[Rfam]
Nucleotides: 171
Base pairs, nucleotide, nucleotide: 005168006167008165009164010163011158012157013096015153016152017151020147021146022145025143026142027141028140029139030138031137032136039114040113041112042111043110045074046073047072048071049070054065055064056063057062082104083103084102087099088098089097116131117130118129
Number, partner (000 for none) and nucleotide at each position: 001000u002000c003000a004000g005168g006167u007000c008165c009164u010163c011158g012157u013096u014000a015153g016152g017151u018000g019000a020147g021146g022145c023000u024000c025143c026142u027141a028140u029139a030138c031137a032136a033000a034000u035000a036000c037000a038000g039114g040113c041112c042111a043110c044000u045074g046073c047072c048071c049070g050000g051000a052000a053000a054065c055064a056063u057062c058000g059000a060000a061000a062057g063056a064055u065054g066000c067000c068000a069000a070049u071048g072047g073046g074045u075000a076000g077000a078000a079000c080000a081000g082104g083103g084102a085000u086000u087099g088098c089097c090000g091000g092000a093000u094000u095000a096013a097089g098088g099087c100000u101000u102084u103083u104082c105000a106000u107000a108000a109000u110043g111042u112041g113040g114039c115000u116131a117130a118129g119000g120000g121000c122000u123000c124000a125000u126000g127000c128000u129118c130117u131116u132000u133000a134000c135000g136032u137031u138030g139029u140028a141027u142026a143025g144000u145022g146021c147020c148000a149000a150000a151017g152016c153015u154000g155000u156000g157012a158011c159000u160000a161000g162000g163010g164009g165008g166000a167006a168005u169000g170000a171000a
A member of the RNA family "M-box riboswitch aptamer (ykoK leader)" from Paenibacillus aquistagni, 171 nucleotides long. A search with the family's covariance model found it, with a score of 152 bits. M-box riboswitch, also know as ykoK leader is described as a metaloregulatory RNA that sense divalent metals and function as a genetic control element of genes related to divalent metal transport in bacteria. It was first reported upstream of the B.subtilis ykoK gene and genes with related functions in other bacteria. Pairs were carried over by alignment from the consensus structure.